RNA sequence: UUGGAAUGAUGUGAUGUGACUUAGCCAAAUCAGAUAUGUAUGUGCUCCAUAUUAUGUUGAAGUGCAUUUCUCUGUUCAUUAACUUUGAGAUUGGUUUCUCAUUUUCUGACCAGA
Numbered sequence: 001u002u003g004g005a006a007u008g009a010u011g012u013g014a015u016g017u018g019a020c021u022u023a024g025c026c027a028a029a030u031c032a033g034a035u036a037u038g039u040a041u042g043u044g045c046u047c048c049a050u051a052u053u054a055u056g057u058u059g060a061a062g063u064g065c066a067u068u069u070c071u072c073u074g075u076u077c078a079u080u081a082a083c084u085u086u087g088a089g090a091u092u093g094g095u096u097u098c099u100c101a102u103u104u105u106c107u108g109a110c111c112a113g114a
Base pairs, nucleotide, nucleotide: 001113002112003111004110
A member of the RNA family "small nucleolar RNA snoR127" from Lupinus angustifolius, 114 nucleotides long. Rfam 15.1 lists 273 matches to the family in 170 species. A reference for the family is Chen and Wu (2009), "Mining small RNA sequencing data: a new approach to identify small nucleolar RNAs in Arabidopsis", Nucleic Acids Res. Pairs were carried over by alignment from the consensus structure, which was predicted with RNAalifold. The source organism's lineage runs through Eukaryota, Embryophyta, Gunneridae, genistoids sensu lato and Lupinus. Gene Ontology terms of the family: nucleolus and RNA processing.